[Rfam]
A member of the RNA family "Glycine riboswitch aptamer" from Mesorhizobium australicum, 87 nucleotides long.
Taxonomically the source falls in Mesorhizobium (Bacteria, Pseudomonadota, Hyphomicrobiales, Phyllobacteriaceae).

RNA sequence: CACCGGUUCGCGGGAGAGAGCAGCGAGAGCUGCCGCCGAAGGGGAAAUCGCCCGAAAUCUCUCAGGCAAAAGAACCGCCUACCGGUC
Numbered sequence: 001c002a003c004c005g006g007u008u009c010g011c012g013g014g015a016g017a018g019a020g021c022a023g024c025g026a027g028a029g030c031u032g033c034c035g036c037c038g039a040a041g042g043g044g045a046a047a048u049c050g051c052c053c054g055a056a057a058u059c060u061c062u063c064a065g066g067c068a069a070a071a072g073a074a075c076c077g078c079c080u081a082c083c084g085g086u087c
Base pairs, nucleotide, nucleotide: 006082007081010078011077012076013075020033021032022031023030035067036066037065038063039062042061043060044059048055049054